[Rfam]
RNA sequence: AGGCAGCCCUUUUGCCUUUGGCAAUGGCAAAGGAGGUGUUGAACUGCUCGUAAAGUAAAUUAUCUUUUGCUCUUCAGACUUGCUGAGAUGUUCUUUGAAGCUGGUCUAGUAAGCCUAAGUACAUA
Numbered sequence: 001a002g003g004c005a006g007c008c009c010u011u012u013u014g015c016c017u018u019u020g021g022c023a024a025u026g027g028c029a030a031a032g033g034a035g036g037u038g039u040u041g042a043a044c045u046g047c048u049c050g051u052a053a054a055g056u057a058a059a060u061u062a063u064c065u066u067u068u069g070c071u072c073u074u075c076a077g078a079c080u081u082g083c084u085g086a087g088a089u090g091u092u093c094u095u096u097g098a099a100g101c102u103g104g105u106c107u108a109g110u111a112a113g114c115c116u117a118a119g120u121a122c123a124u125a
Base pairs, nucleotide, nucleotide: 002040003039004038005037007036008035009033010032011031012030013029014028015027016026064119065118066117069114070113071112076107077106078105079104080103082101083100084099087093088092
Source information: A member of the RNA family "Small nucleolar RNA snoR77" from Rhamnella rubrinervis, 125 nucleotides long. Pairs were carried over by alignment from the consensus structure, which was predicted with WAR. NCBI's taxonomy places the organism under Eukaryota, Tracheophyta, Magnoliopsida, eudicotyledons, Rhamnella. It scores 121 bits against the family's covariance model. Gene Ontology terms of the family: nucleolus and RNA processing.